Description:
Mammalian CPEB3 ribozyme: a 74-nucleotide sequence from Crocodylus porosus. The mammalian CPEB3 ribozyme is a self cleaving RNA located in the second intron of the CPEB3 gene which belongs to a family of genes regulating messenger RNA polyadenylation. The match comes from Rfam's covariance-model search (39 bits).

[Rfam]
RNA sequence: UGCAAAUUUCAGGCCAUAGCAGAAGUGCUCAUGGCAUGGACCUGGCGGAUUCCAACAAAUCUGCAAAUUCGGCU
Numbered sequence: 001u002g003c004a005a006a007u008u009u010c011a012g013g014c015c016a017u018a019g020c021a022g023a024a025g026u027g028c029u030c031a032u033g034g035c036a037u038g039g040a041c042c043u044g045g046c047g048g049a050u051u052c053c054a055a056c057a058a059a060u061c062u063g064c065a066a067a068u069u070c071g072g073c074u
Stems, first nucleotide, its partner, number of pairs: 012042002014039002018074003022070003025037003046063006